This 62-nucleotide RNA sequence from Nomascus leucogenys belongs to the Rfam family "U7 small nuclear RNA". For this family Rfam cites "3' end processing of mouse histone pre-mRNA: evidence for additional base-pairing between U7 snRNA and pre-mRNA" (Spycher et al., Nucleic Acids Res, 1994). Animal histone pre-mRNAs are spliced by a different mechanism than nuclear pre-mRNAs and self-splicing introns. Lineage of the source: Eukaryota > Gnathostomata > Sarcopterygii > Boreoeutheria > Nomascus. Pairs were carried over by alignment from the consensus structure, which was predicted with PFOLD.
[Rfam]
RNA sequence: UAGUGUUACAGGUCUUUUAAAAUUUGUCUAGCAGGUUUUCCAAUAUUUACUGGAAACCCUCC
Numbered sequence: 001u002a003g004u005g006u007u008a009c010a011g012g013u014c015u016u017u018u019a020a021a022a023u024u025u026g027u028c029u030a031g032c033a034g035g036u037u038u039u040c041c042a043a044u045a046u047u048u049a050c051u052g053g054a055a056a057c058c059c060u061c062c
Stems, first nucleotide, its partner, number of pairs: 034059002037056006044049001